[Rfam]
mir-9230 microRNA precursor family: an 87-nucleotide RNA sequence from Cnephaeus nilssonii. The match comes from Rfam's covariance-model search (104 bits).
RNA sequence: CUGACUGCGCUGAACUCCAGUUCCGGGUGAGAAUUUGGGAACCCAGACUCAUUUGGGGAGAAACUGGACUGUCUGGCAGCAGGCAGA
Numbered sequence: 001c002u003g004a005c006u007g008c009g010c011u012g013a014a015c016u017c018c019a020g021u022u023c024c025g026g027g028u029g030a031g032a033a034u035u036u037g038g039g040a041a042c043c044c045a046g047a048c049u050c051a052u053u054u055g056g057g058g059a060g061a062a063a064c065u066g067g068a069c070u071g072u073c074u075g076g077c078a079g080c081a082g083g084c085a086g087a
Stems, first nucleotide, its partner, number of pairs: 001086002005082004010076003014072002016068006022059003027052005034047005